[Rfam]
RNA sequence: AGGCAUAUCCGUAGACCUUGCCUUACUCGGAUCAUGGUCAGGUAGGGGGGACAGUGUAUGCCAGAGUGAUUGGAGUUCAUGCCAUCUCUUAUCAGCUUAAUCAGUGGCUUGAUAAAUUGCAGGACUCCAACAUUC
Numbered sequence: 001a002g003g004c005a006u007a008u009c010c011g012u013a014g015a016c017c018u019u020g021c022c023u024u025a026c027u028c029g030g031a032u033c034a035u036g037g038u039c040a041g042g043u044a045g046g047g048g049g050g051a052c053a054g055u056g057u058a059u060g061c062c063a064g065a066g067u068g069a070u071u072g073g074a075g076u077u078c079a080u081g082c083c084a085u086c087u088c089u090u091a092u093c094a095g096c097u098u099a100a101u102c103a104g105u106g107g108c109u110u111g112a113u114a115a116a117u118u119g120c121a122g123g124a125c126u127c128c129a130a131c132a133u134u135c
Stems, first nucleotide, its partner, number of pairs: 003061006016047008072128004077124001080121003092111001094109003

This 135-nucleotide sequence from Dipodomys ordii belongs to the Rfam family "Small nucleolar RNA SNORA58". About the family: ACA52 is a member of the H/ACA class of snoRNA that guide the sites of modification of uridines to pseudouridines. The source organism's lineage runs through Eukaryota, Opisthokonta, Rodentia, Heteromyidae and Dipodomys. By type it is an H/ACA-box small nucleolar RNA.